[Rfam]
RNA sequence: GUGGGGCCAGGCGGUGGUGGGCACCGCUGGGGUGGGCACAGCAGCCAUGCAGAGCAGGCAGCUGACCCCGUGCCAUCCUCUUCCCCAG
Numbered sequence: 001g002u003g004g005g006g007c008c009a010g011g012c013g014g015u016g017g018u019g020g021g022c023a024c025c026g027c028u029g030g031g032g033u034g035g036g037c038a039c040a041g042c043a044g045c046c047a048u049g050c051a052g053a054g055c056a057g058g059c060a061g062c063u064g065a066c067c068c069c070g071u072g073c074c075a076u077c078c079u080c081u082u083c084c085c086c087a088g
Stems, first nucleotide, its partner, number of pairs: 002087005010079002013077006019068003022064002024057001026055003030050001032048004

About this RNA:
mir-1227 microRNA precursor family: an 88-nucleotide RNA sequence from Macaca mulatta. The literature on the family includes a 2007 paper in Mol Cell by Berezikov et al., "Mammalian mirtron genes".